[Rfam]
Background:
The family of this 156-nucleotide RNA sequence from Rhodovulum sp. ES.010 is "Ruegeria cis2 sRNA". Rfam links the family to the GO term regulation of gene expression.

RNA sequence: GACGGCCGUGAACUGGGGGCUGUAGUUGAUGAAGGUAUAGCCGCGCGCCUGAUCGAUGCAGUGGAACAGCGGGUUCCAGUCGAACAACGUCAGCAUGUAGCCCGGCAGCGUGUUGGCGAGGAACAUCUUGCCCGAGGCGAUCAUGUUCAGCCGCUG
Numbered sequence: 001g002a003c004g005g006c007c008g009u010g011a012a013c014u015g016g017g018g019g020c021u022g023u024a025g026u027u028g029a030u031g032a033a034g035g036u037a038u039a040g041c042c043g044c045g046c047g048c049c050u051g052a053u054c055g056a057u058g059c060a061g062u063g064g065a066a067c068a069g070c071g072g073g074u075u076c077c078a079g080u081c082g083a084a085c086a087a088c089g090u091c092a093g094c095a096u097g098u099a100g101c102c103c104g105g106c107a108g109c110g111u112g113u114u115g116g117c118g119a120g121g122a123a124c125a126u127c128u129u130g131c132c133c134g135a136g137g138c139g140a141u142c143a144u145g146u147u148c149a150g151c152c153g154c155u156g
Stems, first nucleotide, its partner, number of pairs: 002038001004036001006035002009032001017027002042058002044055002067156005073085004090149001092147006101137002103134003106130003110126002113122002

The match comes from Rfam's covariance-model search (90 bits). The family's RNA type in Rfam is small RNA.